[Rfam]
RNA sequence: ACUGCACACCUUUCACGACGGAUCGUCCGGCACGUACCUGCCGGUGAAGGGAUUGGUAG
Numbered sequence: 001a002c003u004g005c006a007c008a009c010c011u012u013u014c015a016c017g018a019c020g021g022a023u024c025g026u027c028c029g030g031c032a033c034g035u036a037c038c039u040g041c042c043g044g045u046g047a048a049g050g051g052a053u054u055g056g057u058a059g
Stems, first nucleotide, its partner, number of pairs: 009051007027044006

This 59-nucleotide RNA sequence from Cellulomonas gilvus belongs to the Rfam family "msiK RNA". The base pairs follow the family's consensus structure, which is taken from published work.